This 109-nucleotide sequence from Roseburia sp. CAG:303 belongs to the Rfam family "SAM riboswitch aptamer (S box leader)". NCBI's taxonomy places the organism under Bacteria, Bacillati, Clostridia, Lachnospiraceae, Roseburia. Rfam links the family to the GO term regulation of gene expression.

RNA sequence: UUCUUAUUCAGAGCGGUGGAGAUACAAGGAUCUGUGAAGCCCGGCAACCCCGAUAGGAAGGUGCCAACCUGAGCGAGAUAUACUGCAGCAGCAGUUCGAACAAUAAGAG
Numbered sequence: 001u002u003c004u005u006a007u008u009c010a011g012a013g014c015g016g017u018g019g020a021g022a023u024a025c026a027a028g029g030a031u032c033u034g035u036g037a038a039g040c041c042c043g044g045c046a047a048c049c050c051c052g053a054u055a056g057g058a059a060g061g062u063g064c065c066a067a068c069c070u071g072a073g074c075g076a077g078a079u080a081u082a083c084u085g086c087a088g089c090a091g092c093a094g095u096u097c098g099a100a101c102a103a104u105a106a107g108a109g
Base pairs, nucleotide, nucleotide: 001109002108003107004106005105006104007103008102013042015041016040017039021032022031023030029070043065044064045063046062048061049060050057051056074098075097076096077095079093